[Rfam]
RNA: Luteovirus cap-independent translation element (BTE)
Organism: Luteovirus nucipersicae
RNA sequence: CCACCACUCACACUCGCUGCAUCCUGGGAAACAGGCGUUCACAUAGAGGAUAACGUAAUCCAAAGUGUGUUGUAAGCUCGGGUAGGCUUGUCACCUACCGACGUAUGACCUUGUGUGUGGCC
Numbered sequence: 001c002c003a004c005c006a007c008u009c010a011c012a013c014u015c016g017c018u019g020c021a022u023c024c025u026g027g028g029a030a031a032c033a034g035g036c037g038u039u040c041a042c043a044u045a046g047a048g049g050a051u052a053a054c055g056u057a058a059u060c061c062a063a064a065g066u067g068u069g070u071u072g073u074a075a076g077c078u079c080g081g082g083u084a085g086g087c088u089u090g091u092c093a094c095c096u097a098c099c100g101a102c103g104u105a106u107g108a109c110c111u112u113g114u115g116u117g118u119g120g121c122c
Stems, first nucleotide, its partner, number of pairs: 004120003009117005016111001018108001023035004076104002081099006